Shown here is a 49-nucleotide RNA sequence from Paracoccus tibetensis, a member of the family "Guanidine-II riboswitch aptamer (mini-ykkC)". NCBI's taxonomy places the organism under Bacteria, Pseudomonadota, Alphaproteobacteria, Paracoccaceae, Paracoccus. About the family: Simpler in structure and has fewer highly conserved nucleotide positions than the ykkC-yxkD leader. Despite this each of its two stem-loop structures directly bind free guanidine. Therefore, mini-ykkC RNA motif represents a distinct class of guanidine-sensing RNAs. Pairs were carried over by alignment from the consensus structure, which is taken from published work.
RNA sequence: GCCUGAGGACGACCUCCCCAUCACGGGCGAUGCUGCCGGGACGACCCGG
Numbered sequence: 001g002c003c004u005g006a007g008g009a010c011g012a013c014c015u016c017c018c019c020a021u022c023a024c025g026g027g028c029g030a031u032g033c034u035g036c037c038g039g040g041a042c043g044a045c046c047c048g049g
Stems, first nucleotide, its partner, number of pairs: 001018001005016004036049005